[Rfam]
BsrC: an 88-nucleotide RNA sequence from Paenibacillus xylanivorans. Rfam classes the family as a small RNA. From the family's description: The 301 nucleotide sequence from Kouji Nakamura has been trimmed to a highly conserved ~85 nucleotide long core to form this family. A reference for the family is Saito et al. (2008), "Novel small RNA-encoding genes in the intergenic regions of Bacillus subtilis", Gene. A search with the family's covariance model found it, with a score of 66 bits.
RNA sequence: GACAUCCAAAACAACAAAAGCCCUACCUCUCUUUUGUCCUUGCGGCUCCGAUGACCGCGCCAGUGUGAAUGGGAACAUCUUGUGAAAC
Numbered sequence: 001g002a003c004a005u006c007c008a009a010a011a012c013a014a015c016a017a018a019a020g021c022c023c024u025a026c027c028u029c030u031c032u033u034u035u036g037u038c039c040u041u042g043c044g045g046c047u048c049c050g051a052u053g054a055c056c057g058c059g060c061c062a063g064u065g066u067g068a069a070u071g072g073g074a075a076c077a078u079c080u081u082g083u084g085a086a087a088c
Stems, first nucleotide, its partner, number of pairs: 034068003039063002041059005047053001